[Rfam]
RNA sequence: UCUGGCAGUGAUGACACACUUGCCCUCACAGAACAUUGUUCAGUAAUGAGAACCUUGCUAUGUACUCAAGAGGAGCUGAGCCAGA
Numbered sequence: 001u002c003u004g005g006c007a008g009u010g011a012u013g014a015c016a017c018a019c020u021u022g023c024c025c026u027c028a029c030a031g032a033a034c035a036u037u038g039u040u041c042a043g044u045a046a047u048g049a050g051a052a053c054c055u056u057g058c059u060a061u062g063u064a065c066u067c068a069a070g071a072g073g074a075g076c077u078g079a080g081c082c083a084g085a
Base pairs, nucleotide, nucleotide: 001085002084003083004082005081006080